[Rfam]
ffh sRNA: a 52-nucleotide RNA sequence from Hartmannibacter diazotrophicus.
RNA sequence: GAUCCCGGAGGUCAACAUCCGUCAGCGCGAUGCGCCCACGGGUGCUGUCGUG
Dot-bracket structure: ...............(((((((..((((...))))..)))))))........
Notes:
By type it is a small RNA.